About this RNA:
Alphaproteobacterial sRNA ar9: a 153-nucleotide sequence from Phytoamicus setariae. The literature on the family includes a 2012 paper in RNA Biol by del Val et al., "A survey of sRNA families in alpha-proteobacteria". The family's RNA type in Rfam is small RNA.
[Rfam]
RNA sequence: AUAAAUAAGGCAGGGAGUUCAAAUCUUUGCCAAACUUCGCGGUCAAGUCUUGGGAGGAUGGGAUCUUAGGCGCGCUUACCCGCUGCCCCCGGUUAGGGAAAUAGAUCACGCGAAAAUUUCUAGAAAACAAGGCUUUAUGCCUUGUUUUUUUUU
Numbered sequence: 001a002u003a004a005a006u007a008a009g010g011c012a013g014g015g016a017g018u019u020c021a022a023a024u025c026u027u028u029g030c031c032a033a034a035c036u037u038c039g040c041g042g043u044c045a046a047g048u049c050u051u052g053g054g055a056g057g058a059u060g061g062g063a064u065c066u067u068a069g070g071c072g073c074g075c076u077u078a079c080c081c082g083c084u085g086c087c088c089c090c091g092g093u094u095a096g097g098g099a100a101a102u103a104g105a106u107c108a109c110g111c112g113a114a115a116a117u118u119u120c121u122a123g124a125a126a127a128c129a130a131g132g133c134u135u136u137a138u139g140c141c142u143u144g145u146u147u148u149u150u151u152u153u
Base pairs, nucleotide, nucleotide: 003153004152005151011029012028013027014026015025016024038112039111040110041109047059048058049057050056062107063106064105065104066103069087070086071085072083073082074081088098089097090096126146127145128144129143130142131141132140133139